The record is a 137-nucleotide sequence from Salarias fasciatus, which matches "Small nucleolar RNA SNORD10" in Rfam.
Rfam 15.1 lists 433 matches to the family in 306 species.
The family's consensus secondary structure was predicted with WAR.
Its family is annotated with nucleolus and RNA processing in the Gene Ontology.
It is annotated as a C/D-box small nucleolar RNA.

RNA sequence: GUGUCGUGAUGAAACCCAUGCGUGUCAGCUGACUCUGCAGCUUCCUGCAGAGCCGCGGCUCCGGUCGGCGUUCUGUCGGCCUGGGCCUGCGGUUCGGCAGAGGCCCAGAGACGUGAUCAUCCUGUCUUCCUGAACGC
Numbered sequence: 001g002u003g004u005c006g007u008g009a010u011g012a013a014a015c016c017c018a019u020g021c022g023u024g025u026c027a028g029c030u031g032a033c034u035c036u037g038c039a040g041c042u043u044c045c046u047g048c049a050g051a052g053c054c055g056c057g058g059c060u061c062c063g064g065u066c067g068g069c070g071u072u073c074u075g076u077c078g079g080c081c082u083g084g085g086c087c088u089g090c091g092g093u094u095c096g097g098c099a100g101a102g103g104c105c106c107a108g109a110g111a112c113g114u115g116a117u118c119a120u121c122c123u124g125u126c127u128u129c130c131u132g133a134a135c136g137c
Base pairs, nucleotide, nucleotide: 001137002136003135004134043102045100046099047098048097050095051094